[Rfam]
Annotation:
Shown here is a 90-nucleotide sequence from Araneus ventricosus, a member of the family "Small nucleolar RNA SNORD10". Its family is annotated with nucleolus and RNA processing in the Gene Ontology.

RNA sequence: GUUCCAUGAUGAAACUGCGUGUCAUCUGACUGUUUGAAUUUUCAUUUAUGAAAAUCUAUAUUGAAUGAUGAUGAUUUGCAUUCUGAGAAC
Dot-bracket structure: ((((..................................((((((....))))))................................))))

The organism belongs to Araneus, within Eukaryota. On this family, see Huttenhofer et al., EMBO J 2001: "RNomics: an experimental approach that identifies 201 candidates for novel, small, non-messenger RNAs in mouse". The family's RNA type in Rfam is C/D-box small nucleolar RNA. Pairs were carried over by alignment from the consensus structure, which was predicted with WAR.